This 59-nucleotide RNA sequence from Microbacterium album belongs to the Rfam family "msiK RNA". NCBI's taxonomy places the organism under Bacteria, Bacillati, Actinomycetota, Micrococcales, Microbacterium.

[Rfam]
RNA sequence: GCAUCGCAUCCAUCACUACGGAUCGUCCGGCACGUACCUGCCGGUGAAGGAGAAAUCAU
Numbered sequence: 001g002c003a004u005c006g007c008a009u010c011c012a013u014c015a016c017u018a019c020g021g022a023u024c025g026u027c028c029g030g031c032a033c034g035u036a037c038c039u040g041c042c043g044g045u046g047a048a049g050g051a052g053a054a055a056u057c058a059u
Stems, first nucleotide, its partner, number of pairs: 009051003013047003027044006
Dot-bracket structure: ........(((.(((...........((((((......))))))))).)))........
The family's consensus secondary structure is taken from published work. It is annotated as a cis-regulatory element.